[Rfam]
RNA sequence: UAAUACAAAGUGUAAGGGACGUACUAGUAAUACGCCCCUAAGUAGAACCGUUUAAGACGGUGACAAGACAUUAAUUAUUAUUAAAUA
Numbered sequence: 001u002a003a004u005a006c007a008a009a010g011u012g013u014a015a016g017g018g019a020c021g022u023a024c025u026a027g028u029a030a031u032a033c034g035c036c037c038c039u040a041a042g043u044a045g046a047a048c049c050g051u052u053u054a055a056g057a058c059g060g061u062g063a064c065a066a067g068a069c070a071u072u073a074a075u076u077a078u079u080a081u082u083a084a085a086u087a
Stems, first nucleotide, its partner, number of pairs: 020034004047061006